[Rfam]
Nucleotides: 085
Base pairs, nucleotide, nucleotide: 001085002084003083004082005081006080007079008078011029013028014027015026016025020070021069022068031054033048034047035046036045037044038043059077060076061075062074063073
Number, partner (000 for none) and nucleotide at each position: 001085g002084u003083u004082a005081u006080u007079u008078a009000a010000g011029g012000c013028u014027c015026g016025g017000a018000a019000a020070g021069g022068c023000u024000c025016c026015c027014g028013a029011c030000a031054c032000u033048c034047c035046u036045u037044c038043u039000u040000u041000u042000c043038g044037g045036a046035a047034g048033g049000a050000a051000c052000c053000u054031g055000a056000g057000a058000u059077g060076a061075u062074g063073g064000a065000u066000a067000c068022g069021c070020c071000g072000c073063c074062c075061a076060u077059c078008u079007a080006a081005a082004u083003a084002a085001c

Shown here is an 85-nucleotide sequence, a member of the family "skipping-rope RNA". Rfam classes the family as a small RNA.